[Rfam]
RNA sequence: UACUUAUCCAGAAAGAUGGAGGGAAUUGACCCUGUGAAGUCUUGGCAACCAUCAGCAAUGAAAAGGUGCCAAAUUCAACUCGAAUAUUUCGAGAAAGAUAAGUU
Numbered sequence: 001u002a003c004u005u006a007u008c009c010a011g012a013a014a015g016a017u018g019g020a021g022g023g024a025a026u027u028g029a030c031c032c033u034g035u036g037a038a039g040u041c042u043u044g045g046c047a048a049c050c051a052u053c054a055g056c057a058a059u060g061a062a063a064a065g066g067u068g069c070c071a072a073a074u075u076c077a078a079c080u081c082g083a084a085u086a087u088u089u090c091g092a093g094a095a096a097g098a099u100a101a102g103u104u
Base pairs, nucleotide, nucleotide: 002103003102004101005100006099007098008097013043014042015041016040017039021032022031023030026078027077028076029075044070045069046068047067049066050065052061053060054059074096079093080092081091082090083089084088

Rfam assigns this 104-nucleotide sequence from bacterium 336/3 to the family "SAM riboswitch aptamer (S box leader)". The family's consensus secondary structure is taken from published work.